[Rfam]
RNA sequence: UUUUGCCGGGAUCGCCAUCCGUCAGCGCGUUGCGCCCACGGGUGCUGCCUUG
Numbered sequence: 001u002u003u004u005g006c007c008g009g010g011a012u013c014g015c016c017a018u019c020c021g022u023c024a025g026c027g028c029g030u031u032g033c034g035c036c037c038a039c040g041g042g043u044g045c046u047g048c049c050u051u052g
Base pairs, nucleotide, nucleotide: 016044017043018042019041020040021039022038025035026034027033028032

A member of the RNA family "ffh sRNA" from Pseudorhodobacter antarcticus, 52 nucleotides long.